[Rfam]
The record is a 57-nucleotide RNA sequence from Alteromonas hispanica, which matches "Pseudomonas sRNA P26" in Rfam.
The source organism's lineage runs through Bacteria, Pseudomonadati, Pseudomonadota, Gammaproteobacteria and Alteromonas.
The family's consensus secondary structure was predicted with RNAalifold.
This small RNA (sRNA) was computationally identified in the genome of the opportunistic pathogen Pseudomonas aeruginosa and its expression verified by northern blot analysis. P26 is conserved across many Gammaproteobacteria species and appears to be consistently located between the DNA directed RNA polymerase (beta subunit) and 50S ribosomal protein L7/L12 genes.
RNA sequence: UUGAUCAGAUUAUUUGCCUGAGACGGCAAGGCUGGUGGUUUUUUGAACCACCAGCCU
Dot-bracket structure: ...............(((......)))..((((((((((.......)))))))))).